[Rfam]
RNA sequence: CGUCACGAGAGGCCGUCGCCAAGCUCCGACUGGACGGCACGCCAACCCCACGCUCGUGGGUGGCUCGGAUGAGGACGCGGCCCCAGCCGACCGGCGCGGGCAAGAGCGCCUC
Numbered sequence: 001c002g003u004c005a006c007g008a009g010a011g012g013c014c015g016u017c018g019c020c021a022a023g024c025u026c027c028g029a030c031u032g033g034a035c036g037g038c039a040c041g042c043c044a045a046c047c048c049c050a051c052g053c054u055c056g057u058g059g060g061u062g063g064c065u066c067g068g069a070u071g072a073g074g075a076c077g078c079g080g081c082c083c084c085a086g087c088c089g090a091c092c093g094g095c096g097c098g099g100g101c102a103a104g105a106g107c108g109c110c111u112c
Stems, first nucleotide, its partner, number of pairs: 001077004009040001012038006022031002041064003046060003050057002080101004086095003
SAM (S-adenosyl methionine) riboswitch aptamer: a 112-nucleotide sequence from Mycobacterium sinensis.
Taxonomically the source falls in Mycobacterium (subgen. Mycolicibacter) (Bacteria, Bacillati, Actinomycetota, Mycobacteriaceae).
Its family is annotated with regulation of gene expression and S-adenosylmethionine metabolic process in the Gene Ontology.
Clan: SAM clan.